RNA sequence: GCGCAUUUGGUGAAAAAGGUAAACACGACGGAUUUAAAAUCCGUUCCUAUUGGUUAUUGGUUCAAGUCCAAUAAUGCGCA
Number, nucleotide and partner (000 for none) at each position: 001g079002c078003g077004c076005a075006u074007u073008u000009g000010g026011u025012g024013a000014a000015a000016a000017a000018g000019g000020u000021a000022a000023a000024c012025a011026c010027g000028a044029c043030g042031g041032a040033u000034u000035u000036a000037a000038a000039a000040u032041c031042c030043g029044u028045u000046c000047c000048u000049a000050u000051u000052g000053g000054u000055u000056a072057u071058u070059g069060g068061u000062u000063c000064a000065a000066g000067u000068c060069c059070a058071a057072u056073a007074a006075u005076g004077c003078g002079c001080a000
Overview: tRNA: an 80-nucleotide RNA sequence. Rfam's curators put it in the seed alignment. From the family's description: Transfer RNA (tRNA) molecules are approximately 80 nucleotides in length. The base pairs follow the family's consensus structure, which is taken from published work. The family's RNA type in Rfam is transfer RNA.